[Rfam]
RNA: Plastid-rpl20 3UTR RNA
RNA sequence: CAAAAAUUCCCCAGACAAUGAAUUCUGGAAGAUAGAAUAAAAAAAAUUAAGUAAGAUAAGUAGUAGGAAUGAACGAACAUGUUUCAAU
Number, nucleotide and partner (000 for none) at each position: 001c000002a000003a000004a000005a000006a000007u030008u029009c000010c000011c028012c027013a026014g025015a024016c000017a000018a000019u000020g000021a000022a000023u000024u015025c014026u013027g012028g011029a008030a007031g000032a000033u000034a000035g000036a000037a000038u000039a000040a000041a000042a000043a000044a000045a000046a000047u000048u000049a000050a000051g000052u000053a000054a000055g000056a000057u000058a000059a000060g000061u000062a000063g000064u000065a000066g000067g000068a000069a000070u000071g084072a083073a082074c081075g000076a000077a000078c000079a000080u000081g074082u073083u072084u071085c000086a000087a000088u000